RNA sequence: UUCGGGUGUGUCAUUACAGUAGUGUAUUACAAUACAAAGUAUGAACUUUGCAUUGUAAUACACUGUUAUAUUACUUGA
Numbered sequence: 001u002u003c004g005g006g007u008g009u010g011u012c013a014u015u016a017c018a019g020u021a022g023u024g025u026a027u028u029a030c031a032a033u034a035c036a037a038a039g040u041a042u043g044a045a046c047u048u049u050g051c052a053u054u055g056u057a058a059u060a061c062a063c064u065g066u067u068a069u070a071u072u073a074c075u076u077g078a
Base pairs, nucleotide, nucleotide: 002078003077004076005075006074007073008072018067019066020065021064022063023062024061025060026059027058028057029056030055031054032053033052035050036049037048038047039046040045
RNA: mir-2804 microRNA precursor family
Organism: Bombyx mori